[Rfam]
RNA sequence: ACACGGGAAAGGAGGUGAUCCGAGAAGUGAAUUUUCUUCGGACGCGUGAGGUGACUGUCCGCUAGUCGCCCGUCAAUGACACGGACGGACCGCCGUCUCGUCAGUGCGCGCGCACUAGCGAGACCACGGCAGUCACCGGAAGCCCGCGGGGGCCACCAUUCGUCCAGGUGGCACUCGGCAGCCGCCGAGAACCCGCGGGCUUCGUCGUGC
Numbered sequence: 001a002c003a004c005g006g007g008a009a010a011g012g013a014g015g016u017g018a019u020c021c022g023a024g025a026a027g028u029g030a031a032u033u034u035u036c037u038u039c040g041g042a043c044g045c046g047u048g049a050g051g052u053g054a055c056u057g058u059c060c061g062c063u064a065g066u067c068g069c070c071c072g073u074c075a076a077u078g079a080c081a082c083g084g085a086c087g088g089a090c091c092g093c094c095g096u097c098u099c100g101u102c103a104g105u106g107c108g109c110g111c112g113c114a115c116u117a118g119c120g121a122g123a124c125c126a127c128g129g130c131a132g133u134c135a136c137c138g139g140a141a142g143c144c145c146g147c148g149g150g151g152g153c154c155a156c157c158a159u160u161c162g163u164c165c166a167g168g169u170g171g172c173a174c175u176c177g178g179c180a181g182c183c184g185c186c187g188a189g190a191a192c193c194c195g196c197g198g199g200c201u202u203c204g205u206c207g208u209g210c
Base pairs, nucleotide, nucleotide: 014059015058016057017056019054060120061119062118063117064116065115066114068113069112071110072107139203140202141201142200143199144198145197146196147195148194149193150192152172153171154170155169156168157167
Rfam assigns this 210-nucleotide RNA from Ruania alkalisoli to the family "Actinobacteria sRNA Ms_IGR-5". It is annotated as a small RNA. For this family Rfam cites "Identification of small RNAs in Mycobacterium smegmatis using heterologous Hfq" (Li et al., RNA, 2013).